[Rfam]
RNA sequence: UUCUUCCUUGUCUUGGGGAGCAGAAUGUCCAAUGAGCGUAUAGUGAGGGCAUUGCUGCUGACAAUAAACCCAUUACCCGAAGGGUGGUGCAUCCUUGCACCCCGUUCGCUAACCCCCCGGCCGGUGGAUCGCUUUCGAACAGCUGAUCCUGCUGGUCGGAAUUUUUGAAGCG
Number, nucleotide and partner (000 for none) at each position: 001u000002u000003c000004u000005u019006c018007c017008u016009u015010g000011u000012c000013u000014u000015g009016g008017g007018g006019a005020g058021c057022a056023g055024a053025a052026u051027g050028u049029c048030c047031a000032a000033u000034g000035a000036g044037c043038g000039u000040a000041u000042a000043g037044u036045g000046a000047g030048g029049g028050c027051a026052u025053u024054g000055c023056u022057g021058c020059u000060g000061a000062c000063a000064a000065u000066a000067a000068a000069c000070c000071c000072a000073u000074u000075a000076c000077c000078c000079g000080a000081a000082g000083g000084g000085u000086g000087g000088u000089g000090c000091a000092u000093c000094c000095u000096u000097g000098c000099a000100c000101c000102c000103c000104g000105u000106u000107c000108g000109c000110u000111a000112a000113c000114c000115c000116c000117c159118c158119g157120g156121c155122c154123g000124g000125u000126g149127g148128a147129u146130c145131g000132c000133u000134u000135u000136c000137g000138a000139a000140c000141a000142g000143c000144u000145g130146a129147u128148c127149c126150u000151g000152c000153u000154g122155g121156u120157c119158g118159g117160a000161a000162u000163u000164u000165u000166u000167g000168a000169a000170g000171c000172g000
This 172-nucleotide RNA sequence from Anopheles sinensis belongs to the Rfam family "U4atac minor spliceosomal RNA". On this family, see Lorkovic et al., RNA 2005: "Evolutionary conservation of minor U12-type spliceosome between plants and humans". The family's consensus secondary structure is taken from published work. From the family's description: U4atac is an essential component of the minor U12-type spliceosome complex which is required for removal of the rarer class of eukaryotic introns (AT-AC, U12-type).